[Rfam]
RNA sequence: UGCUAGCAAACCUUAUCUCGACCUUCACGUGGUGAUCGCUAGGAGUUCUUUAUUAAUGAAAAACUGCGGACGGAGAAAG
Number, nucleotide and partner (000 for none) at each position: 001u000002g000003c000004u000005a000006g000007c000008a000009a000010a000011c000012c079013u078014u077015a000016u075017c000018u073019c072020g071021a033022c032023c031024u000025u000026c000027a000028c000029g000030u000031g023032g022033u021034g000035a000036u000037c000038g000039c000040u000041a000042g000043g000044a065045g064046u063047u062048c000049u060050u059051u058052a057053u000054u000055a000056a000057u052058g051059a050060a049061a000062a047063a046064c045065u044066g000067c000068g000069g000070a000071c020072g019073g018074a000075g016076a000077a014078a013079g012